[Rfam]
RNA sequence: ACAAUGGUACUUCUGCACAGCGAUGCCUUCACAAAAUCGGUGCAGCUCGGAGAGAUCCUCGGAGGGGUGAGAUUCCCAUGU
Numbered sequence: 001a002c003a004a005u006g007g008u009a010c011u012u013c014u015g016c017a018c019a020g021c022g023a024u025g026c027c028u029u030c031a032c033a034a035a036a037u038c039g040g041u042g043c044a045g046c047u048c049g050g051a052g053a054g055a056u057c058c059u060c061g062g063a064g065g066g067g068u069g070a071g072a073u074u075c076c077c078a079u080g081u
Stems, first nucleotide, its partner, number of pairs: 012078001013045006046064003050060003065077003
Source information
pemK RNA: an 81-nucleotide RNA sequence. It is annotated as a cis-regulatory element.